The family of this 82-nucleotide RNA sequence from Acidovorax sp. HDW3 is "SucA RNA motif". By type it is a cis-regulatory element. The literature on the family includes a 2007 paper in Nucleic Acids Res by Weinberg et al., "Identification of 22 candidate structured RNAs in bacteria using the CMfinder comparative genomics pipeline". The source organism's lineage runs through Bacteria, Pseudomonadati, Pseudomonadota, Burkholderiales and Acidovorax.

[Rfam]
RNA sequence: UCGCAUCCGCCAACCGGUACAGCCGUGACGCGGAAGGUUUUCCAACCAACUAAUGUCUCCCUCAGGGAGGCGGAGGUCCGCG
Numbered sequence: 001u002c003g004c005a006u007c008c009g010c011c012a013a014c015c016g017g018u019a020c021a022g023c024c025g026u027g028a029c030g031c032g033g034a035a036g037g038u039u040u041u042c043c044a045a046c047c048a049a050c051u052a053a054u055g056u057c058u059c060c061c062u063c064a065g066g067g068a069g070g071c072g073g074a075g076g077u078c079c080g081c082g
Stems, first nucleotide, its partner, number of pairs: 002082003006034005015025004036047004049077003055071007